[Rfam]
RNA: U7 small nuclear RNA
RNA sequence: UAGUGCUUCAGCUCUUUUAGAAUUUGUCUAGUGGGUUUUCUGGUUUUCACUGAAAGACCCAA
Numbered sequence: 001u002a003g004u005g006c007u008u009c010a011g012c013u014c015u016u017u018u019a020g021a022a023u024u025u026g027u028c029u030a031g032u033g034g035g036u037u038u039u040c041u042g043g044u045u046u047u048c049a050c051u052g053a054a055a056g057a058c059c060c061a062a
Base pairs, nucleotide, nucleotide: 034059035058036057037056038055039054041052042051043050044049